[Rfam]
RNA sequence: CCCGCGGCUAGACGGAAAGACCCCAUGAACCUUUACUGUAGCUUUGCAUUGGACUUUGAACCGGUUUGUGUAGGAUAGGUGGGAGGCUGUGAAGUGUGGACGCUAGUCUGCAUGGAGCCGUCCUUGAAAUACCACCCUGAUCUGUUUGAGGUUCUAACCUUGGCCCGUGAUCCGGGUCGGGGACAGUGCAUGGUAGGCAGUUUGACUGGGGCGGUCUCCUCCCAAAGGGUAACGGAGGAGUACGAAGGUACGCUAGGUACGGUCGGAAAUCGUGCUGAUAGUGCAAUGGCAUAAGCGUGCUUGACUGUGAGACCCACAAGUCGAACAGGUGCGAAAGCAGGUCAUAGUGAUCCGGUGGUUCUGUAUGGAAGGGCCAUCGCUCAACGGAUAAAAGGUACUCUGGGGAUAACAGGCUGAUACCGCCCAAGAGUUCAUAUCGACGGCGGUGUUUGGCACCUCGAUGUCGGCUCAUCUCAUCCUGGGGCUGUAGCCGGUCCCAAGGGUAUGGCUGUUCGCCAUUUAAAGAGGUACGUGAGCUGGGUUUAAAACGUCGUGAGACAGUUUGGUCCCUAUCUGCCGUGGGCGCU
Number, nucleotide and partner (000 for none) at each position: 001c583002c582003c581004g580005c579006g578007g577008c576009u000010a575011g574012a573013c000014g570015g569016a000017a000018a000019g000020a000021c000022c404023c403024c402025a401026u000027g400028a399029a396030c395031c394032u393033u392034u000035a201036c200037u199038g198039u000040a000041g000042c193043u192044u000045u190046g189047c188048a187049u000050u000051g154052g153053a152054c151055u150056u149057u148058g147059a146060a145061c144062c000063g142064g141065u140066u139067u000068g137069u000070g000071u000072a000073g000074g000075a000076u000077a000078g136079g135080u134081g133082g132083g000084a000085g119086g118087c117088u000089g000090u000091g000092a000093a000094g113095u112096g111097u110098g109099g108100a107101c106102g000103c000104u000105a000106g101107u100108c099109u098110g097111c096112a095113u094114g000115g000116a000117g087118c086119c085120g000121u000122c000123c000124u000125u000126g000127a000128a000129a000130u000131a000132c082133c081134a080135c079136c078137c068138u000139g066140a065141u064142c063143u000144g061145u060146u059147u058148g057149a056150g055151g054152u053153u052154c051155u000156a000157a000158c181159c180160u179161u000162g178163g177164c176165c175166c174167g173168u000169g000170a000171u000172c000173c167174g166175g165176g164177u163178c162179g160180g159181g158182g000183a000184c000185a000186g000187u048188g047189c046190a045191u000192g043193g042194u000195a000196g000197g000198c038199a037200g036201u035202u000203u000204g216205a215206c214207u213208g000209g000210g000211g000212c000213g207214g206215u205216c204217u239218c238219c237220u236221c235222c234223c000224a000225a000226a000227g000228g000229g000230u000231a000232a000233c000234g222235g221236a220237g219238g218239a217240g385241u000242a342243c341244g000245a000246a000247g000248g300249u299250a298251c297252g296253c295254u280255a279256g000257g275258u274259a273260c272261g271262g270263u000264c000265g000266g000267a000268a000269a000270u262271c261272g260273u259274g258275c257276u000277g000278a000279u255280a254281g290282u289283g000284c000285a000286a000287u000288g000289g282290c281291a000292u000293a000294a000295g253296c252297g251298u250299g249300c248301u000302u000303g000304a000305c328306u327307g326308u325309g000310a000311g322312a321313c320314c000315c000316a000317c000318a000319a000320g313321u312322c311323g000324a000325a308326c307327a306328g305329g000330u339331g338332c337333g000334a000335a000336a000337g332338c331339a330340g000341g243342u242343c000344a000345u000346a000347g000348u000349g000350a000351u000352c000353c379354g378355g377356u376357g375358g374359u373360u000361c372362u371363g000364u000365a000366u000367g000368g000369a000370a000371g362372g361373g359374c358375c357376a356377u355378c354379g353380c000381u000382c000383a000384a000385c240386g000387g000388a000389u000390a000391a000392a033393a032394g031395g030396u029397a000398c000399u028400c027401u025402g024403g023404g022405g000406a000407u000408a000409a000410c000411a000412g000413g454414c453415u452416g000417a451418u448419a447420c446421c445422g444423c443424c442425c000426a000427a000428g438429a437430g000431u000432u000433c000434a000435u000436a000437u429438c428439g000440a000441c000442g424443g423444c422445g421446g420447u419448g418449u000450u000451u417452g415453g414454c413455a000456c000457c000458u000459c000460g000461a000462u000463g000464u000465c540466g538467g537468c536469u535470c532471a529472u528473c527474u526475c525476a000477u000478c503479c502480u000481g498482g497483g496484g495485c494486u493487g000488u000489a000490g000491c000492c000493g486494g485495u484496c483497c482498c481499a000500a000501g000502g479503g478504u000505a519506u518507g517508g516509c515510u000511g000512u000513u000514c000515g509516c508517c507518a506519u505520u000521u000522a000523a000524a000525g475526a474527g473528g472529u471530a000531c000532g470533u000534g000535a469536g468537c467538u466539g000540g465541g000542u000543u000544u000545a000546a564547a563548a562549c561550g559551u558552c557553g000554u000555g000556a000557g552558a551559c550560a000561g549562u548563u547564u546565g000566g000567u000568c000569c015570c014571u000572a000573u012574c011575u010576g008577c007578c006579g005580u004581g003582g002583g001584c000585g000586c000587u000

Rfam assigns this 587-nucleotide part of an RNA from Paraburkholderia acidisoli to the family "Bacterial large subunit ribosomal RNA". The match comes from Rfam's covariance-model search (2796 bits). The source organism's lineage runs through Bacteria, Pseudomonadati, Pseudomonadota, Burkholderiales and Paraburkholderia.